[Rfam]
A member of the RNA family "U2 spliceosomal RNA" from Ictidomys tridecemlineatus, 191 nucleotides long.
Its family is annotated with mRNA branch site recognition, U2 snRNP and pre-mRNA branch point binding in the Gene Ontology.
A reference for the family is Berglund et al. (2001), "Crystal structure of a model branchpoint-U2 snRNA duplex containing bulged adenosines", RNA.
The base pairs follow the family's consensus structure, which is taken from published work.
It scores 130 bits against the family's covariance model.
U2 is a small nuclear RNA (snRNA) component of the spliceosome (involved in pre-mRNA splicing). Complementary binding between U2 snRNA (in an area lying towards the 5' end but 3' to hairpin I) and the branchpoint sequence (BPS) of the intron results the bulging out of an unpaired adenosine, on the BPS, which initiates a nucleophilic attack at the intronic 5' splice site, thus starting the first of two transesterification reactions that mediate splicing.
NCBI's taxonomy places the organism under Eukaryota, Metazoa, Vertebrata, Mammalia, Ictidomys.
RNA sequence: AUUCCUUCUUGGUCUUUUGGGUAAGAUCAAGUAUAUUAUCUGUUUUUAUCAGUUUACUAUCUGAUACAACCUGUACCCGAGGACAAUAGAUUAAAUAGAUUUUUGGAGCAAGGAGAUGUAAUAGGAGCUUUCUCUAUCUGUUCCAUGCAUCCACCUGGUAUUUCAGUACCUCCAGGAAUGGUGCACCUCAC
Numbered sequence: 001a002u003u004c005c006u007u008c009u010u011g012g013u014c015u016u017u018u019g020g021g022u023a024a025g026a027u028c029a030a031g032u033a034u035a036u037u038a039u040c041u042g043u044u045u046u047u048a049u050c051a052g053u054u055u056a057c058u059a060u061c062u063g064a065u066a067c068a069a070c071c072u073g074u075a076c077c078c079g080a081g082g083a084c085a086a087u088a089g090a091u092u093a094a095a096u097a098g099a100u101u102u103u104u105g106g107a108g109c110a111a112g113g114a115g116a117u118g119u120a121a122u123a124g125g126a127g128c129u130u131u132c133u134c135u136a137u138c139u140g141u142u143c144c145a146u147g148c149a150u151c152c153a154c155c156u157g158g159u160a161u162u163u164c165a166g167u168a169c170c171u172c173c174a175g176g177a178a179u180g181g182u183g184c185a186c187c188u189c190a191c
Stems, first nucleotide, its partner, number of pairs: 007026003011022001013020002047066006070082003112144004118138001124135004147184005154176005